[Rfam]
RNA sequence: GUUAUCGGAUUCAACUUAAUCCACAUGUGUUGGAGUGGAUUGGAGUGGAAUUUAGUUCAAGUUCCACUCCUAUCCACCCCAACACAUGUGGAUUCAUAAGGAUCUAACU
Numbered sequence: 001g002u003u004a005u006c007g008g009a010u011u012c013a014a015c016u017u018a019a020u021c022c023a024c025a026u027g028u029g030u031u032g033g034a035g036u037g038g039a040u041u042g043g044a045g046u047g048g049a050a051u052u053u054a055g056u057u058c059a060a061g062u063u064c065c066a067c068u069c070c071u072a073u074c075c076a077c078c079c080c081a082a083c084a085c086a087u088g089u090g091g092a093u094u095c096a097u098a099a100g101g102a103u104c105u106a107a108c109u
Base pairs, nucleotide, nucleotide: 005107007105008104009103010102011101012100016096018094019093020092021091022090023089024088025087026086027085028084029083030082031081032080035077036076037075038074039073040072042070043069045067046066047065